[Rfam]
RNA sequence: UGUAACGGGUAAAGGCUUGCACCGAGAUGACAAUGGCAUGUUUAGGCGUAGAUGGGGCUUUCGGGAUGUACGCGGUUAGGGUCCUCUCGGG
Numbered sequence: 001u002g003u004a005a006c007g008g009g010u011a012a013a014g015g016c017u018u019g020c021a022c023c024g025a026g027a028u029g030a031c032a033a034u035g036g037c038a039u040g041u042u043u044a045g046g047c048g049u050a051g052a053u054g055g056g057g058c059u060u061u062c063g064g065g066a067u068g069u070a071c072g073c074g075g076u077u078a079g080g081g082u083c084c085u086c087u088c089g090g091g
Stems, first nucleotide, its partner, number of pairs: 001012001024088004029083003043078003047074002052069003
A member of the RNA family "Retrovirus direct repeat 1 (dr1)" from Callipepla squamata, 91 nucleotides long. About the family: This family represents the direct repeat 1 (dr1) element commonly found in the 3' UTR of Avian sarcoma, Rous sarcoma and Avian leukosis viruses (Alpharetroviruses and Avian type C retroviruses). dr1 is required for efficient viral replication and is thought to be involved in genomic RNA packaging although this may not be its only role. NCBI's taxonomy places the organism under Eukaryota, Metazoa, Archelosauria, Archosauria, Callipepla. On this family, see Aschoff et al., J Virol 1999: "Point mutations in the avian sarcoma/leukosis virus 3' untranslated region result in a packaging defect". It is annotated as a cis-regulatory element.